The record is a 186-nucleotide RNA from Actinoplanes utahensis, which matches "c-di-AMP riboswitch aptamer (ydaO/yuaA leader)" in Rfam. It scores 67 bits against the family's covariance model. Its family is annotated with cyclic-di-AMP binding and regulation of gene expression in the Gene Ontology. This family represents a conserved RNA structure found upstream of the ydaO and yuaA genes in Bacillus subtilis and related genes in other bacteria. The ydaO/yuaA element is thought to act as a genetic 'off' switch for the ydaO and yuaA genes in its native state. It is believed that the element may be triggered during osmotic shock leading to activation of ydaO, a predicted amino acid transporter gene, and members of the yuaA-yubG operon which code for KtrA and KtrB K+ transporters.
RNA sequence: CGCAGUAGUAAGCCGGACCACAAGGCAUUCGGGGGCAGGGACGGGGGACCCAAUACCGGUCACUUCCGCAUCGUCGCUCCGGCGGCGUCUCGGGAGGACCUCGGGGUGAAGCCGCCCACCCGCGGCCGGGCAAGCCUUCCCGCCCGAACCCGACAGCUAACCUCGCAGGCGUGCCGGAGGGAAUUC
Numbered sequence: 001c002g003c004a005g006u007a008g009u010a011a012g013c014c015g016g017a018c019c020a021c022a023a024g025g026c027a028u029u030c031g032g033g034g035g036c037a038g039g040g041a042c043g044g045g046g047g048a049c050c051c052a053a054u055a056c057c058g059g060u061c062a063c064u065u066c067c068g069c070a071u072c073g074u075c076g077c078u079c080c081g082g083c084g085g086c087g088u089c090u091c092g093g094g095a096g097g098a099c100c101u102c103g104g105g106g107u108g109a110a111g112c113c114g115c116c117c118a119c120c121c122g123c124g125g126c127c128g129g130g131c132a133a134g135c136c137u138u139c140c141c142g143c144c145c146g147a148a149c150c151c152g153a154c155a156g157c158u159a160a161c162c163u164c165g166c167a168g169g170c171g172u173g174c175c176g177g178a179g180g181g182a183a184u185u186c
Stems, first nucleotide, its partner, number of pairs: 012170003018040002042165005051103001104151003112125004128145004
Dot-bracket structure: ...........(((...((...................)).(((((....(...................................................)(((.....((((......))))..((((..........))))...))).........)))))..)))................